[Rfam]
RNA sequence: AUAUGGGCUUGACGACGAGAGAGAGCACGCUCGGAAACACACAGAUUAUGAAGCUCCUGCAUGUGAUCGAGCGUGCUCCCUCGCGCCGUCAGGCCCUU
Number, nucleotide and partner (000 for none) at each position: 001a000002u000003a000004u000005g000006g000007g000008c000009u000010u091011g090012a089013c088014g087015a000016c085017g084018a000019g000020a081021g080022a000023g078024a000025g076026c075027a074028c073029g072030c071031u070032c069033g068034g067035a000036a000037a000038c000039a000040c000041a000042c000043a000044g000045a000046u000047u000048a000049u000050g000051a000052a000053g000054c000055u000056c000057c000058u000059g000060c000061a000062u000063g000064u000065g000066a000067u034068c033069g032070a031071g030072c029073g028074u027075g026076c025077u000078c023079c000080c021081u020082c000083g000084c017085g016086c000087c014088g013089u012090c011091a010092g000093g000094c000095c000096c000097u000098u000
Overview
Rfam assigns this 98-nucleotide RNA from Adiantum capillus-veneris to the family "MIR535 microRNA precursor family". The match comes from Rfam's covariance-model search (65 bits). The family's consensus secondary structure was predicted with RNAalifold. On this family, see Zeng et al., Nucleic Acids Res 2010: "Conservation and divergence of microRNAs and their functions in Euphorbiaceous plants".